[Rfam]
RNA: Singlet oxygen resistance RNA X
Organism: Albidovulum denitrificans
RNA sequence: AUCCCCUUGCCGCGCCGGGGUCAUGACGCGGCAUCCUCCCUGUUGGACUGGCCGGGCCUCGCGCCCGGCCUUUUUU
Numbered sequence: 001a002u003c004c005c006c007u008u009g010c011c012g013c014g015c016c017g018g019g020g021u022c023a024u025g026a027c028g029c030g031g032c033a034u035c036c037u038c039c040c041u042g043u044u045g046g047a048c049u050g051g052c053c054g055g056g057c058c059u060c061g062c063g064c065c066c067g068g069c070c071u072u073u074u075u076u
Base pairs, nucleotide, nucleotide: 008033009032010031011030012029013028014027050070051069052068053067054066055065056064057063